[Rfam]
RNA sequence: GCGAUGAGCUGAUUUGUGUAAGACGAGGAAUGGUAAUAUAUGCGAAUGUGGUCGCAUAAUUUCUCGCCACAAAUAUACGUAAAAAACGUCUGUUUUUAUACAGGCGUU
Numbered sequence: 001g002c003g004a005u006g007a008g009c010u011g012a013u014u015u016g017u018g019u020a021a022g023a024c025g026a027g028g029a030a031u032g033g034u035a036a037u038a039u040a041u042g043c044g045a046a047u048g049u050g051g052u053c054g055c056a057u058a059a060u061u062u063c064u065c066g067c068c069a070c071a072a073a074u075a076u077a078c079g080u081a082a083a084a085a086a087c088g089u090c091u092g093u094u095u096u097u098a099u100a101c102a103g104g105c106g107u108u
Stems, first nucleotide, its partner, number of pairs: 014072005024066008039058002042055003085108009
Dot-bracket structure: .............(((((.....((((((((.......((.(((........))).)))))))))).)))))............(((((((((......)))))))))